[Rfam]
RNA: Molybdenum/Tungsten riboswitch aptamer (Moco RNA motif)
Organism: Brockia lithotrophica
RNA sequence: GGACGUACGCCCCUCCGAGCCGGUGGUCCUACGGGAGGAACUUCCUCCUAUGGCAGCCGGCCUGGGCUUCGGCCCACGGGGUAUAUCCGGAAACGGGUAUGCCUUCCCCUCGGUGUAGAAGGAGGCGGCGGGUUCCGGU
Numbered sequence: 001g002g003a004c005g006u007a008c009g010c011c012c013c014u015c016c017g018a019g020c021c022g023g024u025g026g027u028c029c030u031a032c033g034g035g036a037g038g039a040a041c042u043u044c045c046u047c048c049u050a051u052g053g054c055a056g057c058c059g060g061c062c063u064g065g066g067c068u069u070c071g072g073c074c075c076a077c078g079g080g081g082u083a084u085a086u087c088c089g090g091a092a093a094c095g096g097g098u099a100u101g102c103c104u105u106c107c108c109c110u111c112g113g114u115g116u117a118g119a120a121g122g123a124g125g126c127g128g129c130g131g132g133u134u135c136c137g138g139u
Base pairs, nucleotide, nucleotide: 003134006131012125013124014123015122016121019061020060021059022058023057024056026054028053029052033049034048035047036046037045038044039043063076064075065074066073067072079104080103081102082101083100084099085098086097087096088095089094105117106115